Shown here is a 63-nucleotide RNA from Spermophilus dauricus, a member of the family "Ma3 gene ribosomal frameshift signal". Rfam links the family to the GO term translational frameshifting. Rfam 15.1 lists 565 matches to the family in 155 species. NCBI's taxonomy places the organism under Eukaryota, Bilateria, Craniata, Eutheria, Spermophilus. By type it is a frameshift element.
[Rfam]
RNA sequence: GGGAAACAAGGAUGGGGCUGGGGAGACGAGCCACCCCAAGCCCUCCUUGGGCAAAUAGGCUCA
Numbered sequence: 001g002g003g004a005a006a007c008a009a010g011g012a013u014g015g016g017g018c019u020g021g022g023g024a025g026a027c028g029a030g031c032c033a034c035c036c037c038a039a040g041c042c043c044u045c046c047u048u049g050g051g052c053a054a055a056u057a058g059g060c061u062c063a
Stems, first nucleotide, its partner, number of pairs: 014044006021037003028062005